Rfam assigns this 94-nucleotide sequence from Falsibacillus albus to the family "c-di-GMP-I riboswitch aptamer". The base pairs follow the family's consensus structure, which is taken from published work. It scores 76 bits against the family's covariance model.
RNA sequence: UGGACGAAAUGGCAAAAUUAUUGAAAAAUAAUGACGCAAAACUAAUGGGGCUAAAGUCUAAAUGCGAUUAGGACUACGCCAGCCAGUUACCGAA
Number, nucleotide and partner (000 for none) at each position: 001u000002g000003g000004a000005c000006g000007a000008a000009a000010u000011g000012g037013c036014a000015a000016a000017a032018u031019u030020a029021u028022u027023g000024a000025a000026a000027a022028a021029u020030a019031a018032u017033g000034a000035c000036g013037c012038a000039a000040a088041a087042c086043u085044a000045a000046u000047g084048g083049g080050g079051c078052u000053a000054a000055a000056g074057u073058c072059u071060a000061a000062a000063u000064g000065c000066g000067a000068u000069u000070a000071g059072g058073a057074c056075u000076a000077c000078g051079c050080c049081a000082g000083c048084c047085a043086g042087u041088u040089a000090c000091c000092g000093a000094a000